[Rfam]
RNA sequence: ACUACAUAUGAUGAAGCCAUUUACGGAUGUUAAACACAUAAAACAUACCGAGAGCGCAUAAACCCCAUGUGGAAUUUUCCGUUGCCUUCCUUCUGAUCCCCUAC
Numbered sequence: 001a002c003u004a005c006a007u008a009u010g011a012u013g014a015a016g017c018c019a020u021u022u023a024c025g026g027a028u029g030u031u032a033a034a035c036a037c038a039u040a041a042a043a044c045a046u047a048c049c050g051a052g053a054g055c056g057c058a059u060a061a062a063c064c065c066c067a068u069g070u071g072g073a074a075u076u077u078u079c080c081g082u083u084g085c086c087u088u089c090c091u092u093c094u095g096a097u098c099c100c101c102u103a104c
Base pairs, nucleotide, nucleotide: 003103004102024081025080026079027078
RNA: Small nucleolar RNA Z13/snr52
Organism: Laccaria bicolor